This 128-nucleotide RNA from Cebus imitator belongs to the Rfam family "U4atac minor spliceosomal RNA". Gene Ontology terms of the family: spliceosomal tri-snRNP complex assembly, mRNA 5'-splice site recognition and pre-mRNA 5'-splice site binding. The base pairs follow the family's consensus structure, which is taken from published work. On this family, see Lorkovic et al., RNA 2005: "Evolutionary conservation of minor U12-type spliceosome between plants and humans". U4atac is an essential component of the minor U12-type spliceosome complex which is required for removal of the rarer class of eukaryotic introns (AT-AC, U12-type). NCBI's taxonomy places the organism under Eukaryota, Opisthokonta, Euteleostomi, Simiiformes, Cebus.
[Rfam]
RNA sequence: ACCAUCAUUUCCUGGGGCUUGUGCUACUGUCCAAUGAGUGUAUAGUGAGCGCUGUACUGCUAAUGUCUACACAACAUGCCCGCAUCAACUAGAGCUUUGCUUUACCUUGGCGCAAUGAUUUUGAAAAA
Numbered sequence: 001a002c003c004a005u006c007a008u009u010u011c012c013u014g015g016g017g018c019u020u021g022u023g024c025u026a027c028u029g030u031c032c033a034a035u036g037a038g039u040g041u042a043u044a045g046u047g048a049g050c051g052c053u054g055u056a057c058u059g060c061u062a063a064u065g066u067c068u069a070c071a072c073a074a075c076a077u078g079c080c081c082g083c084a085u086c087a088a089c090u091a092g093a094g095c096u097u098u099g100c101u102u103u104a105c106c107u108u109g110g111c112g113c114a115a116u117g118a119u120u121u122u123g124a125a126a127a128a
Stems, first nucleotide, its partner, number of pairs: 006017001008016002021060003026055002029052002032049001038046002082113002085110003090104006